[Rfam]
Rfam assigns this 88-nucleotide sequence from Tenacibaculum piscium to the family "Flavo-1 RNA". The source organism's lineage runs through Bacteria, Pseudomonadati, Bacteroidota, Flavobacteriaceae and Tenacibaculum. The family's RNA type in Rfam is small RNA. The base pairs follow the family's consensus structure, which is taken from published work.
RNA sequence: ACCUAGCCCCGAUUGAAGCAAUUGUUUGAGCUCCUUUUUUUUGAUUUUUCUUCAAAAAAAAGAGCGAGUGCGGAAAGCGGGAAAUAGC
Numbered sequence: 001a002c003c004u005a006g007c008c009c010c011g012a013u014u015g016a017a018g019c020a021a022u023u024g025u026u027u028g029a030g031c032u033c034c035u036u037u038u039u040u041u042u043g044a045u046u047u048u049u050c051u052u053c054a055a056a057a058a059a060a061a062g063a064g065c066g067a068g069u070g071c072g073g074a075a076a077g078c079g080g081g082a083a084a085u086a087g088c
Base pairs, nucleotide, nucleotide: 009080010079011078013076014075018071019070030065031064032063033062036060037059038058039057040056041055042054043053